[Rfam]
RNA: Small pathogenicity island RNA C (srn_3610)
Organism: Staphylococcus haemolyticus
RNA sequence: AUUAAGUCAACGACCAUGCGUGGACUUUAAAAAACAAAAUCAUGUACAGUAGUAGCCGUCUGCUAUGAGACUAGGCAUUAUAAUUGAAUAUCAUAGUGUUGAUAAAGAGAUAUGAUUAAUGAGUGAUUAGUCAUAUCUCU
Numbered sequence: 001a002u003u004a005a006g007u008c009a010a011c012g013a014c015c016a017u018g019c020g021u022g023g024a025c026u027u028u029a030a031a032a033a034a035c036a037a038a039a040u041c042a043u044g045u046a047c048a049g050u051a052g053u054a055g056c057c058g059u060c061u062g063c064u065a066u067g068a069g070a071c072u073a074g075g076c077a078u079u080a081u082a083a084u085u086g087a088a089u090a091u092c093a094u095a096g097u098g099u100u101g102a103u104a105a106a107g108a109g110a111u112a113u114g115a116u117u118a119a120u121g122a123g124u125g126a127u128u129a130g131u132c133a134u135a136u137c138u139c140u
Stems, first nucleotide, its partner, number of pairs: 007023002010021003041098003044091003047086003055076003058071004106140015